[Rfam]
Plastid-clpP 5UTR RNA: a 70-nucleotide RNA from Olea europaea.
RNA sequence: AAUUAUGUUUGUCAGAACAAAUAGAAGUAGAUGUAUUCUAUACUCAAUAAGUGCCAAUAUGCAGAUGGGG
Numbered sequence: 001a002a003u004u005a006u007g008u009u010u011g012u013c014a015g016a017a018c019a020a021a022u023a024g025a026a027g028u029a030g031a032u033g034u035a036u037u038c039u040a041u042a043c044u045c046a047a048u049a050a051g052u053g054c055c056a057a058u059a060u061g062c063a064g065a066u067g068g069g070g
Stems, first nucleotide, its partner, number of pairs: 004021001006019005043069003051060003
Background: From the family's description: Plastid clpP is a non-coding RNA (ncRNA) recognised in plastids. It was found in the prime untranslated region (5UTR) of a protease complex subunit (clpP) in plastids, suggesting a posible cis-regulatory function. A reference for the family is Richter et al. (2023), "Retrograde signaling in plants: A critical review focusing on the GUN pathway and beyond", Plant Commun. The match comes from Rfam's covariance-model search (69 bits). The base pairs follow the family's consensus structure, which was predicted with LocARNA.